[Rfam]
Nucleotides: 099
Base pairs, nucleotide, nucleotide: 012096013062014061015060016059017058064082065081066080068078069077070076083095084094085093
Number, partner (000 for none) and nucleotide at each position: 001000a002000u003000a004000a005000u006000g007000a008000u009000a010000c011000u012096u013062u014061g015060u016059c017058c018000a019000g020000u021000c022000a023000a024000a025000a026000g027000u028000c029000g030000a031000g032000c033000g034000u035000g036000a037000u038000a039000a040000a041000a042000c043000c044000g045000u046000c047000g048000c049000a050000a051000c052000c053000a054000a055000a056000g057000a058017g059016g060015g061014c062013a063000g064082c065081u066080c067000g068078g069077a070076g071000a072000g073000a074000u075000c076070c077069u078068c079000g080066g081065a082064g083095u084094g085093g086000u087000g088000a089000g090000a091000u092000u093085c094084c095083a096012a097000u098000g099000a
Rfam assigns this 99-nucleotide RNA to the family "pemK RNA".
Rfam classes the family as a cis-regulatory element.